[Rfam]
RNA sequence: CAAACGGCUCUUUUAAGAGCCACCACAUUUUCCUAAACAGGGCUGU
Numbered sequence: 001c002a003a004a005c006g007g008c009u010c011u012u013u014u015a016a017g018a019g020c021c022a023c024c025a026c027a028u029u030u031u032c033c034u035a036a037a038c039a040g041g042g043c044u045g046u
Base pairs, nucleotide, nucleotide: 006021007020008019009018010017011016